[Rfam]
RNA sequence: AGCUGAUGCGUUGGCGGUUGGCUCUCCAGUCCCGCCGCAGCAGCUGUUCCCCUCUGGAGGUUUAACCUUCACAACUUAUACAGGGCCCCAUUUGGAGGCCCUUUUUU
Numbered sequence: 001a002g003c004u005g006a007u008g009c010g011u012u013g014g015c016g017g018u019u020g021g022c023u024c025u026c027c028a029g030u031c032c033c034g035c036c037g038c039a040g041c042a043g044c045u046g047u048u049c050c051c052c053u054c055u056g057g058a059g060g061u062u063u064a065a066c067c068u069u070c071a072c073a074a075c076u077u078a079u080a081c082a083g084g085g086c087c088c089c090a091u092u093u094g095g096a097g098g099c100c101c102u103u104u105u106u107u
Stems, first nucleotide, its partner, number of pairs: 001045005007039003014035004055071007082102006088095002
A member of the RNA family "Alphaproteobacterial ar15" from Martelella mediterranea, 107 nucleotides long. The family is grouped with related families in Rfam's "suhB sRNA clan". Taxonomically the source falls in Martelella (Bacteria, Pseudomonadati, Pseudomonadota, Alphaproteobacteria). On this family, see del Val et al., RNA Biol 2012: "A survey of sRNA families in alpha-proteobacteria". The pairing is the family consensus, mapped onto this sequence. Its family is annotated with protein binding in the Gene Ontology. By type it is a small RNA.